[Rfam]
RNA: Purine riboswitch aptamer
Organism: Desulfosporosinus sp. Sb-LF
RNA sequence: CAGACAUGCGAAGAUAGAGUUCAUAUAGUAGCAGAGAUAAGGUCUGCAAGUUUCUACCGGGCUGCCGUAAAUGGUCCGACUAUGAGCGAAAUUGGAUUACAC
Numbered sequence: 001c002a003g004a005c006a007u008g009c010g011a012a013g014a015u016a017g018a019g020u021u022c023a024u025a026u027a028g029u030a031g032c033a034g035a036g037a038u039a040a041g042g043u044c045u046g047c048a049a050g051u052u053u054c055u056a057c058c059g060g061g062c063u064g065c066c067g068u069a070a071a072u073g074g075u076c077c078g079a080c081u082a083u084g085a086g087c088g089a090a091a092u093u094g095g096a097u098u099a100c101a102c
Stems, first nucleotide, its partner, number of pairs: 019087007029049001031047005058078007